A member of the RNA family "Purine riboswitch aptamer" from Paenibacillus macerans, 101 nucleotides long. Rfam's curators write: Riboswitches are metabolite binding domains within certain messenger RNAs that serve as precision sensors for their corresponding targets. The base pairs follow the family's consensus structure, which is taken from published work. Lineage of the source: Bacteria > Bacillota > Bacilli > Paenibacillaceae > Paenibacillus.
[Rfam]
RNA sequence: ACAACAACAGUUAAAUCUUUUCGUAUAAUUCCGGGAAUCGGCCCGGAAGUCUCUACGAGGUCACCGUAAAUGAUCUUGCUACGAAGAGAAGAAGCGGCGCA
Numbered sequence: 001a002c003a004a005c006a007a008c009a010g011u012u013a014a015a016u017c018u019u020u021u022c023g024u025a026u027a028a029u030u031c032c033g034g035g036a037a038u039c040g041g042c043c044c045g046g047a048a049g050u051c052u053c054u055a056c057g058a059g060g061u062c063a064c065c066g067u068a069a070a071u072g073a074u075c076u077u078g079c080u081a082c083g084a085a086g087a088g089a090a091g092a093a094g095c096g097g098c099g100c101a
Base pairs, nucleotide, nucleotide: 018087019086020085021084022083023082024081025080029048030047031046032045033044034043035042057077058076059075060074061073062072063071